[Rfam]
RNA: Mammalian CPEB3 ribozyme
Organism: Alligator sinensis
RNA sequence: GUUUUCAAACAGGGGGACACAGCAGAAGCAUUCACGUUACGACCCCUGUCAGGUAAUACCUGCAGUCGGCU
Dot-bracket structure: ............((((.(..[[[.[[.(.(.......).)).))))...(((((...)))))...]].]]]
Numbered sequence: 001g002u003u004u005u006c007a008a009a010c011a012g013g014g015g016g017a018c019a020c021a022g023c024a025g026a027a028g029c030a031u032u033c034a035c036g037u038u039a040c041g042a043c044c045c046c047u048g049u050c051a052g053g054u055a056a057u058a059c060c061u062g063c064a065g066u067c068g069g070c071u
Stems, first nucleotide, its partner, number of pairs: 013046004018041001021071003025067002028040001030038001050062005